Rfam assigns this 108-nucleotide RNA sequence from Clostridium tyrobutyricum to the family "SAM riboswitch aptamer (S box leader)".
It scores 92 bits against the family's covariance model.

[Rfam]
RNA sequence: UUCUUAUCGAGAGAGGCAGAGGGACUGGCCCUAUGAAGCCCGGCAACCUAAAUGUAUAUAUACAUUUAAUGGUGCUAAUUCCAGCAGGAAUAACCUGAAAGAUGAGAG
Number, nucleotide and partner (000 for none) at each position: 001u108002u107003c106004u105005u104006a103007u102008c101009g000010a000011g000012a000013g041014a000015g040016g039017c038018a000019g000020a000021g031022g030023g029024a000025c084026u083027g082028g081029c023030c022031c021032u000033a000034u000035g000036a000037a000038g017039c016040c015041c013042g076043g075044c074045a073046a000047c072048c071049u068050a067051a066052a065053u064054g063055u000056a000057u000058a000059u000060a000061u000062a000063c054064a053065u052066u051067u050068a049069a000070u000071g048072g047073u045074g044075c043076u042077a000078a000079u000080u100081c028082c027083a026084g025085c097086a096087g095088g094089a000090a000091u000092a000093a000094c088095c087096u086097g085098a000099a000100a080101g008102a007103u006104g005105a004106g003107a002108g001